[Rfam]
RNA sequence: UGACCUCGAAUUAGGUAAGAAUACCUACUAAACUUAAGCAUAUUAAUAAGCAGAGGAAAAAAAACUAACAGGGAUUGCCCCAGUAACGGCGAGUAAAGCGGUAACAGCUUAAAUUUAAAAUCUAGCUCUCGGGCCCGAGUUGUAAUUUAUAGAGGAUACUUUUAGUGAGGUGCCUUCUAAGUUCCCUAAAAUGGGACGCUAUAGAGGGUGAGAGCCCUAUCUAGUCAGACACCGAUCCUCUAUAAAGCUCCUUCAAUAAGUUAAGUAGUUUAGGAAUACUACUCUAAAUAGGAGGUAUAUAUCUUCUAAAGCUAAAUACCGGCCAGAAACCAAUAGCGUAUAAGUAAAGUAAUUAAAAGAUAAAAAGAACUUUAAAAAGAGAGUUAAAAAAUAUAUAAAAUUAUUAAAAGGGAAG
Numbered sequence: 001u002g003a004c005c006u007c008g009a010a011u012u013a014g015g016u017a018a019g020a021a022u023a024c025c026u027a028c029u030a031a032a033c034u035u036a037a038g039c040a041u042a043u044u045a046a047u048a049a050g051c052a053g054a055g056g057a058a059a060a061a062a063a064a065c066u067a068a069c070a071g072g073g074a075u076u077g078c079c080c081c082a083g084u085a086a087c088g089g090c091g092a093g094u095a096a097a098g099c100g101g102u103a104a105c106a107g108c109u110u111a112a113a114u115u116u117a118a119a120a121u122c123u124a125g126c127u128c129u130c131g132g133g134c135c136c137g138a139g140u141u142g143u144a145a146u147u148u149a150u151a152g153a154g155g156a157u158a159c160u161u162u163u164a165g166u167g168a169g170g171u172g173c174c175u176u177c178u179a180a181g182u183u184c185c186c187u188a189a190a191a192u193g194g195g196a197c198g199c200u201a202u203a204g205a206g207g208g209u210g211a212g213a214g215c216c217c218u219a220u221c222u223a224g225u226c227a228g229a230c231a232c233c234g235a236u237c238c239u240c241u242a243u244a245a246a247g248c249u250c251c252u253u254c255a256a257u258a259a260g261u262u263a264a265g266u267a268g269u270u271u272a273g274g275a276a277u278a279c280u281a282c283u284c285u286a287a288a289u290a291g292g293a294g295g296u297a298u299a300u301a302u303c304u305u306c307u308a309a310a311g312c313u314a315a316a317u318a319c320c321g322g323c324c325a326g327a328a329a330c331c332a333a334u335a336g337c338g339u340a341u342a343a344g345u346a347a348a349g350u351a352a353u354u355a356a357a358a359g360a361u362a363a364a365a366a367g368a369a370c371u372u373u374a375a376a377a378a379g380a381g382a383g384u385u386a387a388a389a390a391a392u393a394u395a396u397a398a399a400a401u402u403a404u405u406a407a408a409a410g411g412g413a414a415g
Stems, first nucleotide, its partner, number of pairs: 024055001025053002028050002035042002065072002076103004086094002106313004112147004118141002121138002125134003152254002154251003159247004165237001169233002173228001177224002181197001183196004200204001207217002264283006290307005347354002370381004